The record is a 68-nucleotide RNA sequence from Pleuronectes platessa, which matches "Small nucleolar RNA SNORD66" in Rfam. snoRNA HBII-142 is part of the C/D family of snoRNAs. It is the human orthologue of the mouse MBII-142 snoRNA and is predicted to guide 2'O-ribose methylation of small 18S rRNA at residue C1272.
RNA sequence: CUCCUCCUGAAAUUAGCGCCACAUGUGUGCACCACUAAUCCAAGUGAUGUGAUUGAGGAACUAAGGAG
Numbered sequence: 001c002u003c004c005u006c007c008u009g010a011a012a013u014u015a016g017c018g019c020c021a022c023a024u025g026u027g028u029g030c031a032c033c034a035c036u037a038a039u040c041c042a043a044g045u046g047a048u049g050u051g052a053u054u055g056a057g058g059a060a061c062u063a064a065g066g067a068g
Stems, first nucleotide, its partner, number of pairs: 001068004

Rfam links the family to the GO terms RNA processing and nucleolus. The organism belongs to Pleuronectes, within Eukaryota.